[Rfam]
Nucleotides: 080
Stems, first nucleotide, its partner, number of pairs: 017068007026059010
Number, partner (000 for none) and nucleotide at each position: 001000g002000a003000g004000g005000a006000g007000g008000a009000g010000g011000c012000a013000g014000u015000u016000a017068a018067g019066a020065c021064u022063u023062g024000c025000a026059g027058u028057g029056a030055u031054g032053u033052u034051u035050a036000g037000a038000g039000a040000a041000c042000u043000u044000g045000a046000c047000a048000c049000a050035u051034g052033a053032a054031c055030a056029u057028c058027a059026c060000u061000u062023u063022a064021a065020g066019u067018c068017u069000g070000u071000g072000c073000u074000a075000g076000c077000u078000c079000c080000a